[Rfam]
RNA sequence: CUACAUGAUGAUCUCCAUGUAUAAAGCAUAGUUCAACUGAAGGUCUUCGGAUCGCUGAACGAGAAACCCAUCACCAUCUUUCAUCAUAUCUGAUC
Numbered sequence: 001c002u003a004c005a006u007g008a009u010g011a012u013c014u015c016c017a018u019g020u021a022u023a024a025a026g027c028a029u030a031g032u033u034c035a036a037c038u039g040a041a042g043g044u045c046u047u048c049g050g051a052u053c054g055c056u057g058a059a060c061g062a063g064a065a066a067c068c069c070a071u072c073a074c075c076a077u078c079u080u081u082c083a084u085c086a087u088a089u090c091u092g093a094u095c
Stems, first nucleotide, its partner, number of pairs: 006021002008018003031060005042053004
Record summary:
A member of the RNA family "A. fumigatus snoRNA Afu_263" from Trichophyton equinum, 95 nucleotides long. It is one of the family's seed sequences. The family's RNA type in Rfam is C/D-box small nucleolar RNA. The source organism's lineage runs through Eukaryota, leotiomyceta, Eurotiomycetes, Eurotiomycetidae and Trichophyton equinum. Its Rfam clan is "SNORD77 clan". For this family Rfam cites "Small ncRNA transcriptome analysis from Aspergillus fumigatus suggests a novel mechanism for regulation of protein synthesis" (Jochl et al., Nucleic Acids Res, 2008).